This 348-nucleotide RNA sequence from Sphingomonas oligophenolica belongs to the Rfam family "Alphaproteobacteria transfer-messenger RNA". Clan: tRNA clan. About the family: Bacterial tmRNA, also known as 10Sa RNA or SsrA, is named for its dual tRNA and mRNA-like properties. Its role is to liberate the mRNA from a stalled ribosome. To accomplish this part of the tmRNA is used as a reading frame that ends in a translation stop signal. The broken mRNA is replaced in the ribosome by the tmRNA and translation of the tmRNA leads to addition of a proteolysis tag to the incomplete protein enabling recognition by a protease. Recently a number of permuted tmRNA genes have been found encoded in two parts. tmRNAs have been identified in eubacteria and some chloroplasts but are absent from archaeal and eukaryote nuclear genomes. Taxonomically the source falls in Sphingomonas (Bacteria, Pseudomonadota, Alphaproteobacteria, Sphingomonadaceae). Pairs were carried over by alignment from the consensus structure, which is taken from published work.

[Rfam]
RNA sequence: GCGAUUGCGGUGCGGCGCGGGAUUGCCUAUAUCGGUCGUGCCGGAGGCUUCGGCCUUGGCUAUGGCGAUAAAGGAUUGCGUAAAAUAGACGCAGCGGACCCGGGGGCAGUACCCGGCGGCUCCACCAUAAGGUGGUGUUCUGGACACCGUUUCUGACGGGGCCGAACCAGGAUCGACGUGUGUUGAAAGGCGUUUUCUUUUGCUCGGAAUGGGACCACCGUGACGGCCCAUACACAAGUGCCAACGAUAACGAAGCACUCGCGAUUGCGGCGUAACUGAGGGCCUCACGGCCUAAGGUUAUUCUAAAAAAGCGCGGUCGGACCCCACCGGGCAACAGAAGGGGAUUCC
Numbered sequence: 001g002c003g004a005u006u007g008c009g010g011u012g013c014g015g016c017g018c019g020g021g022a023u024u025g026c027c028u029a030u031a032u033c034g035g036u037c038g039u040g041c042c043g044g045a046g047g048c049u050u051c052g053g054c055c056u057u058g059g060c061u062a063u064g065g066c067g068a069u070a071a072a073g074g075a076u077u078g079c080g081u082a083a084a085a086u087a088g089a090c091g092c093a094g095c096g097g098a099c100c101c102g103g104g105g106g107c108a109g110u111a112c113c114c115g116g117c118g119g120c121u122c123c124a125c126c127a128u129a130a131g132g133u134g135g136u137g138u139u140c141u142g143g144a145c146a147c148c149g150u151u152u153c154u155g156a157c158g159g160g161g162c163c164g165a166a167c168c169a170g171g172a173u174c175g176a177c178g179u180g181u182g183u184u185g186a187a188a189g190g191c192g193u194u195u196u197c198u199u200u201u202g203c204u205c206g207g208a209a210u211g212g213g214a215c216c217a218c219c220g221u222g223a224c225g226g227c228c229c230a231u232a233c234a235c236a237a238g239u240g241c242c243a244a245c246g247a248u249a250a251c252g253a254a255g256c257a258c259u260c261g262c263g264a265u266u267g268c269g270g271c272g273u274a275a276c277u278g279a280g281g282g283c284c285u286c287a288c289g290g291c292c293u294a295a296g297g298u299u300a301u302u303c304u305a306a307a308a309a310a311g312c313g314c315g316g317u318c319g320g321a322c323c324c325c326a327c328c329g330g331g332c333a334a335c336a337g338a339a340g341g342g343g344a345u346u347c348c
Stems, first nucleotide, its partner, number of pairs: 040060005064204005074197002078193004090182003094179003100116005117164007205220003210230003215226002314329004320346002323343003